The record is an 80-nucleotide sequence from Acipenser ruthenus, which matches "Small nucleolar RNA SNORD83" in Rfam. Gene Ontology terms of the family: nucleolus and RNA processing. The organism belongs to Acipenser, within Eukaryota. The base pairs follow the family's consensus structure, which was predicted with PFOLD. For this family Rfam cites "Characterisation of the U83 and U84 small nucleolar RNAs: two novel 2'-O-ribose methylation guide RNAs that lack complementarities to ribosomal RNAs" (Jady and Kiss, Nucleic Acids Res, 2000).
[Rfam]
RNA sequence: GCCAAAUGAUGUGGCUACAUAGAUCCCAUUAGCACUGUGUGCAAAGAUGACCCGUUAUCUAUCACCCGUGACUGAUGGCU
Numbered sequence: 001g002c003c004a005a006a007u008g009a010u011g012u013g014g015c016u017a018c019a020u021a022g023a024u025c026c027c028a029u030u031a032g033c034a035c036u037g038u039g040u041g042c043a044a045a046g047a048u049g050a051c052c053c054g055u056u057a058u059c060u061a062u063c064a065c066c067c068g069u070g071a072c073u074g075a076u077g078g079c080u
Base pairs, nucleotide, nucleotide: 001079002078003077004076032042033041034040035039